[Rfam]
RNA sequence: AUGAUCCUCACUGGAGAGAGCCUGGUGACCUUGCUGCAAGCGAGGUGAGCCCGGCCACCGAAGGGGCAAGCCCACAACGCCGCGAUCAGGUCGCAGCGAGGGGUCAAUCUCUCAGGUAAAGCGGACAGAGAGGGCAGC
Number, nucleotide and partner (000 for none) at each position: 001a000002u000003g000004a000005u000006c133007c132008u131009c130010a000011c128012u127013g126014g000015a000016g000017a000018g000019a000020g055021c054022c053023u000024g000025g000026u000027g000028a000029c000030c000031u000032u000033g000034c000035u000036g000037c000038a000039a000040g000041c000042g000043a000044g000045g000046u000047g000048a000049g000050c000051c000052c000053g022054g021055c020056c000057a117058c116059c115060g113061a112062a000063g000064g111065g110066g109067c000068a000069a000070g104071c103072c102073c101074a000075c000076a000077a000078c000079g000080c000081c000082g000083c000084g000085a000086u000087c000088a000089g000090g000091u000092c000093g000094c000095a000096g000097c000098g000099a000100g000101g073102g072103g071104u070105c000106a000107a000108u000109c066110u065111c064112u061113c060114a000115g059116g058117u057118a000119a000120a000121g000122c000123g000124g000125a000126c013127a012128g011129a000130g009131a008132g007133g006134g000135c000136a000137g000138c000
Glycine riboswitch aptamer: a 138-nucleotide RNA sequence from Aquabacterium sp. NJ1. Lineage of the source: Bacteria > Betaproteobacteria > Burkholderiales > Sphaerotilaceae > Aquabacterium. Its Rfam clan is "Glycine riboswitch clan". A search with the family's covariance model found it, with a score of 54 bits. The literature on the family includes a 2017 paper in MBio by Babina et al., "In Vivo Behavior of the Tandem Glycine Riboswitch in Bacillus subtilis".